[Rfam]
RNA: Xanthomonadaceae sRNA asX1
Organism: Stenotrophomonas daejeonensis
RNA sequence: CACCCGCUGUGGCAAUGCGCUGCGAGCGCAUGCGGCUGGAAUUGGAACAGGGGCCGGCCGACGCGCACAACGGGGAAGCAUGGGCCGACGGUCGCAGGACUCGUCGGCCUUUUCUUU
Numbered sequence: 001c002a003c004c005c006g007c008u009g010u011g012g013c014a015a016u017g018c019g020c021u022g023c024g025a026g027c028g029c030a031u032g033c034g035g036c037u038g039g040a041a042u043u044g045g046a047a048c049a050g051g052g053g054c055c056g057g058c059c060g061a062c063g064c065g066c067a068c069a070a071c072g073g074g075g076a077a078g079c080a081u082g083g084g085c086c087g088a089c090g091g092u093c094g095c096a097g098g099a100c101u102c103g104u105c106g107g108c109c110u111u112u113u114c115u116u117u
Base pairs, nucleotide, nucleotide: 003074004073005072006071008069009068010067011066012064013063015031016030017029018028019027033060035058036057037056038055039054042051043050080112082110083109084108085107086106087105088104089103090102091100092099093098